The family of this 77-nucleotide sequence from Carlito syrichta is "Small nucleolar RNA SNORD81". On this family, see Smith and Steitz, Mol Cell Biol 1998: "Classification of gas5 as a multi-small-nucleolar-RNA (snoRNA) host gene and a member of the 5'-terminal oligopyrimidine gene family reveals common features of snoRNA host genes". It scores 95 bits against the family's covariance model. The family's consensus secondary structure was predicted with PFOLD. Clan: SNORD26 clan. The organism belongs to Carlito, within Eukaryota.

RNA sequence: CAGGAUACAUGAUGAUCUCACCUCAUCUUGAACUCUCUCACUGAUGACUUGAUGACAUUAAAAGAUCUGAUAUGCUG
Numbered sequence: 001c002a003g004g005a006u007a008c009a010u011g012a013u014g015a016u017c018u019c020a021c022c023u024c025a026u027c028u029u030g031a032a033c034u035c036u037c038u039c040a041c042u043g044a045u046g047a048c049u050u051g052a053u054g055a056c057a058u059u060a061a062a063a064g065a066u067c068u069g070a071u072a073u074g075c076u077g
Stems, first nucleotide, its partner, number of pairs: 001077003005073003